[Rfam]
RNA sequence: GGGUUGCAAGUGCGGUGAGCCCAACUUUGAGUUACGAUAAUUACUAUGUUAAUUUACGAGAUUAUAGUAACUCCUUACUAAGUGGUUUAUUAUAACGUUAUGGUAAAUAUCCCUAUGCGUUAUAGUAACCUAACUAUCGUAAAUAUGUAUUGACAUUAUCGUAAAUUAGUAUAUAAAAUUAUCGUAAAUGAAGGUGGCUACAUAAUAACUUAUUUUGUAACUG
Numbered sequence: 001g002g003g004u005u006g007c008a009a010g011u012g013c014g015g016u017g018a019g020c021c022c023a024a025c026u027u028u029g030a031g032u033u034a035c036g037a038u039a040a041u042u043a044c045u046a047u048g049u050u051a052a053u054u055u056a057c058g059a060g061a062u063u064a065u066a067g068u069a070a071c072u073c074c075u076u077a078c079u080a081a082g083u084g085g086u087u088u089a090u091u092a093u094a095a096c097g098u099u100a101u102g103g104u105a106a107a108u109a110u111c112c113c114u115a116u117g118c119g120u121u122a123u124a125g126u127a128a129c130c131u132a133a134c135u136a137u138c139g140u141a142a143a144u145a146u147g148u149a150u151u152g153a154c155a156u157u158a159u160c161g162u163a164a165a166u167u168a169g170u171a172u173a174u175a176a177a178a179u180u181a182u183c184g185u186a187a188a189u190g191a192a193g194g195u196g197g198c199u200a201c202a203u204a205a206u207a208a209c210u211u212a213u214u215u216u217g218u219a220a221c222u223g
Base pairs, nucleotide, nucleotide: 002222003221004220005219006218007217008216009215010214011212012211014209016207017201018199019198020197021196024195025194026193027192028191032187033186034185035184036183037182038181039180040179041178042177045173046172047171048170049169050168051167052166053165054164055163056162057161060160061159062158064156065155069150075142076141077140078139082137083136084135085134086133087132088127089126090125091124092123093122094121095120096119097118098117102112103111

Description:
The family of this 223-nucleotide sequence from Miscanthus lutarioriparius is "MIR6217 microRNA precursor family". The organism belongs to Miscanthus, within Eukaryota. The match comes from Rfam's covariance-model search (156 bits). Pairs were carried over by alignment from the consensus structure, which was predicted with RNAalifold.